[Rfam]
RNA sequence: UCUCCAUUCCACACACUCUCUCGCUCACUCUGACCGCCGAGAGAGUGUGUGAGAUGGAGAGA
Dot-bracket structure: (((((((..(.((((((.((((................)))).)))))).)..)))))))..
Numbered sequence: 001u002c003u004c005c006a007u008u009c010c011a012c013a014c015a016c017u018c019u020c021u022c023g024c025u026c027a028c029u030c031u032g033a034c035c036g037c038c039g040a041g042a043g044a045g046u047g048u049g050u051g052a053g054a055u056g057g058a059g060a061g062a
Stems, first nucleotide, its partner, number of pairs: 001060007010051001012049006019042004
This 62-nucleotide sequence from Pristionchus pacificus belongs to the Rfam family "mir-8364 microRNA precursor family". The family's consensus secondary structure was predicted with RNAalifold. Gene Ontology terms of the family: miRNA-mediated post-transcriptional gene silencing and RISC complex.